[Rfam]
RNA sequence: AAAUUAUCUAGAGAGGUGGAGGGACUGGCCCAAUGAAACCCGGCAACCGGUAUUAUUUUAAAUAAUAUCAUGGUGCCAACUCCUGCAGCAUUAAGCUGAAAGAUAAGGA
Numbered sequence: 001a002a003a004u005u006a007u008c009u010a011g012a013g014a015g016g017u018g019g020a021g022g023g024a025c026u027g028g029c030c031c032a033a034u035g036a037a038a039c040c041c042g043g044c045a046a047c048c049g050g051u052a053u054u055a056u057u058u059u060a061a062a063u064a065a066u067a068u069c070a071u072g073g074u075g076c077c078a079a080c081u082c083c084u085g086c087a088g089c090a091u092u093a094a095g096c097u098g099a100a101a102g103a104u105a106a107g108g109a
Stems, first nucleotide, its partner, number of pairs: 004106005013041001015040003021031003025085001027083002042077004047073002049069007081101001086098004
RNA: SAM riboswitch aptamer (S box leader)
Organism: Clostridium acetireducens